[Rfam]
RNA sequence: AGACCUUUUAAUGUUAGUCCAGAGAGGCUGAAAAAGGGAGAAAUUCUGAUUCUAUGUGCACUUAUCACAUGCACUCGACUACCCUUUUUGCACCUUCUGGAGCAAAAAGGGUUUUUUAAU
Numbered sequence: 001a002g003a004c005c006u007u008u009u010a011a012u013g014u015u016a017g018u019c020c021a022g023a024g025a026g027g028c029u030g031a032a033a034a035a036g037g038g039a040g041a042a043a044u045u046c047u048g049a050u051u052c053u054a055u056g057u058g059c060a061c062u063u064a065u066c067a068c069a070u071g072c073a074c075u076c077g078a079c080u081a082c083c084c085u086u087u088u089u090g091c092a093c094c095u096u097c098u099g100g101a102g103c104a105a106a107a108a109g110g111g112u113u114u115u116u117u118a119a120u
Stems, first nucleotide, its partner, number of pairs: 004037005014031006049075001051073001053071006078115001081112011
Shown here is a 120-nucleotide RNA from Falsibacillus albus, a member of the family "PyrR binding site". Pairs were carried over by alignment from the consensus structure, which is taken from published work. The family's RNA type in Rfam is cis-regulatory element.